[Rfam]
A member of the RNA family "bip internal ribosome entry site (IRES)" from Molossus molossus, 261 nucleotides long.
On this family, see Kim and Jang, Biochem Biophys Res Commun 2002: "Continuous heat shock enhances translational initiation directed by internal ribosomal entry site".
From the family's description: This family represents the bip internal ribosome entry site (IRES). BiP protein expression has been found to be significantly enhanced by the heat shock response due to IRES-dependent translation. It is thought that this translational mechanism is essential for the survival of cells under stress.
The organism belongs to Molossus, within Eukaryota.
Nucleotides: 261
Base pairs, nucleotide, nucleotide: 004250005249006248007247008246009245016164017163018162020160030120031119033117034116059107061105062104064102065101066100067099168180169179170178171177172176
Number, partner (000 for none) and nucleotide at each position: 001000c002000a003000c004250u005249g006248g007247u008246c009245g010000a011000g012000a013000u014000a015000u016164u017163a018162c019000a020160g021000a022000c023000a024000u025000a026000g027000u028000g029000a030120u031119u032000u033117g034116g035000a036000g037000a038000u039000a040000u041000u042000g043000u044000g045000a046000g047000u048000g049000c050000g051000c052000g053000a054000g055000g056000u057000a058000a059107g060000c061105g062104c063000c064102g065101c066100g067099g068000c069000c070000u071000g072000c073000c074000u075000u076000u077000c078000c079000g080000g081000a082000c083000c084000a085000g086000c087000c088000c089000u090000u091000c092000g093000u094000c095000c096000u097000g098000u099067c100066c101065g102064c103000u104062g105061c106000u107059c108000c109000u110000g111000u112000u113000g114000a115000c116034c117033c118000c119031g120030g121000g122000c123000c124000c125000u126000g127000u128000g129000u130000c131000g132000c133000c134000c135000u136000c137000a138000g139000g140000u141000c142000g143000g144000u145000a146000a147000u148000c149000u150000g151000c152000g153000u154000g155000c156000g157000u158000u159000g160020c161000c162018g163017u164016g165000c166000u167000u168180c169179g170178g171177c172176c173000u174000g175000u176172g177171g178170c179169u180168g181000g182000a183000u184000u185000g186000c187000u188000u189000g190000a191000g192000a193000c194000g195000c196000c197000c198000u199000g200000c201000c202000u203000g204000c205000c206000u207000g208000c209000u210000g211000a212000c213000c214000g215000a216000c217000g218000g219000c220000g221000a222000a223000g224000g225000c226000a227000a228000g229000a230000u231000g232000a233000a234000g235000c236000u237000c238000u239000c240000c241000c242000u243000g244000g245009u246008g247007g248006c249005c250004g251000c252000c253000g254000u255000g256000c257000u258000g259000c260000u261000g
Background: It scores 175 bits against the family's covariance model.